Rfam assigns this 68-nucleotide RNA sequence from Novosphingobium marinum to the family "int-alpA RNA". Lineage of the source: Bacteria > Pseudomonadati > Sphingomonadales > Sphingomonadaceae > Novosphingobium. It is annotated as a small RNA. It scores 42 bits against the family's covariance model.
RNA sequence: GAGGCGGCUACGGUAGCUCCUGAACAGCCGGAAUAUCCGCCCGGCCUGCCGCCUCGUUCAUAUCGCGG
Numbered sequence: 001g002a003g004g005c006g007g008c009u010a011c012g013g014u015a016g017c018u019c020c021u022g023a024a025c026a027g028c029c030g031g032a033a034u035a036u037c038c039g040c041c042c043g044g045c046c047u048g049c050c051g052c053c054u055c056g057u058u059c060a061u062a063u064c065g066c067g068g
Stems, first nucleotide, its partner, number of pairs: 001055008012020002027045005036067001038065002
Acidobacteria (1 example), Planctomycetes (1 example), Proteobacteria. The family has 167 seed sequences and 577 matches in Rfam 15.1.